[Rfam]
RNA sequence: UGGCGUUGAAGCAGUGGACUGGUUCGGCAUCAGCCUGUUGUGGAGCCAAACUAUGGGUUGAGCGAAAACCACAAGCCGAAUAGAUUCGAUGAAUCGAAAGAAACCGCAAAAU
Numbered sequence: 001u002g003g004c005g006u007u008g009a010a011g012c013a014g015u016g017g018a019c020u021g022g023u024u025c026g027g028c029a030u031c032a033g034c035c036u037g038u039u040g041u042g043g044a045g046c047c048a049a050a051c052u053a054u055g056g057g058u059u060g061a062g063c064g065a066a067a068a069c070c071a072c073a074a075g076c077c078g079a080a081u082a083g084a085u086u087c088g089a090u091g092a093a094u095c096g097a098a099a100g101a102a103a104c105c106g107c108a109a110a111a112u
Stems, first nucleotide, its partner, number of pairs: 001048004011041007019033003024079004062107003083095004
RNA: drum RNA